isrG Hfq binding RNA: a 279-nucleotide sequence from Salmonella enterica. A reference for the family is Padalon-Brauch et al. (2008), "Small RNAs encoded within genetic islands of Salmonella typhimurium show host-induced expression and role in virulence", Nucleic Acids Res. It is annotated as a small RNA.
RNA sequence: GUUUUGCGGCAUCUUCUGCUCUGGUGGCUGCUGCUCCGGCAGCAGUACUGCUUUGCGCCGCCAGUGAUGCGCUGGUAUCAGAUGCGGCGGCGUGAUUGGAUGCCUCCGAUGCUGAUGACGAGGCGGCUGUUGCGCUGGCCGCUGCUGUACUUGCUGACGUUGCUGCGUUUGUCUCAGAUAUUUUUGCUGCGGCUGCCGAUGCGGUUGCCGCCUUUUCCGACGCUGCCGCCGCAGUGGCUGACGCACCUGCAUCACCGGCACUGGAGGCGGCCUGUGUUU
Numbered sequence: 001g002u003u004u005u006g007c008g009g010c011a012u013c014u015u016c017u018g019c020u021c022u023g024g025u026g027g028c029u030g031c032u033g034c035u036c037c038g039g040c041a042g043c044a045g046u047a048c049u050g051c052u053u054u055g056c057g058c059c060g061c062c063a064g065u066g067a068u069g070c071g072c073u074g075g076u077a078u079c080a081g082a083u084g085c086g087g088c089g090g091c092g093u094g095a096u097u098g099g100a101u102g103c104c105u106c107c108g109a110u111g112c113u114g115a116u117g118a119c120g121a122g123g124c125g126g127c128u129g130u131u132g133c134g135c136u137g138g139c140c141g142c143u144g145c146u147g148u149a150c151u152u153g154c155u156g157a158c159g160u161u162g163c164u165g166c167g168u169u170u171g172u173c174u175c176a177g178a179u180a181u182u183u184u185u186g187c188u189g190c191g192g193c194u195g196c197c198g199a200u201g202c203g204g205u206u207g208c209c210g211c212c213u214u215u216u217c218c219g220a221c222g223c224u225g226c227c228g229c230c231g232c233a234g235u236g237g238c239u240g241a242c243g244c245a246c247c248u249g250c251a252u253c254a255c256c257g258g259c260a261c262u263g264g265a266g267g268c269g270g271c272c273u274g275u276g277u278u279u
Stems, first nucleotide, its partner, number of pairs: 006271002009268002012265003017260004023256004027238008037228007060076007077116005085108003089104005117217002120214008129205006136198004141193005147154002159187002165181001167179005243250002